[Rfam]
RNA: U4 spliceosomal RNA
RNA sequence: AGCUUUGCUCAGUGGCAGUAUCAUAGCCAAUGAGGUUUAUCCGAGGUGCAAUUAUUGCUAAUUGAAAACUUUUCCCAAUACCCUGUCAUGACAACUUGCAAUACAGUCGGUACUGGCAAUAUUUGACAGUCCCUACAGAGA
Dot-bracket structure: ...................((..(.(((.....((.....))..))))..))................................(((.((.(.(((........))).).))..)))............((.(....).))